[Rfam]
Rfam assigns this 72-nucleotide RNA sequence from Klebsiella pneumoniae to the family "Enterobacterial sRNA STnc480". Lineage of the source: Bacteria > Pseudomonadota > Enterobacterales > Enterobacteriaceae > Klebsiella pneumoniae complex. By type it is a small RNA. The family's consensus secondary structure was predicted with WAR. It is one of the family's seed sequences.
RNA sequence: GAAUAAAAAAUGCCACGGUUCUCACCGUGGCAAAAUCCAACAUAGCUAAACAAAAAAAAUUUAUGCGAUGGG
Number, nucleotide and partner (000 for none) at each position: 001g000002a000003a000004u000005a000006a000007a000008a000009a000010a000011u000012g031013c030014c029015a028016c027017g026018g025019u024020u000021c000022u000023c000024a019025c018026c017027g016028u015029g014030g013031c012032a000033a000034a000035a000036u000037c000038c000039a000040a000041c000042a000043u000044a000045g000046c000047u000048a000049a000050a000051c000052a000053a000054a000055a000056a000057a000058a000059a000060u000061u000062u000063a000064u000065g000066c000067g000068a000069u000070g000071g000072g000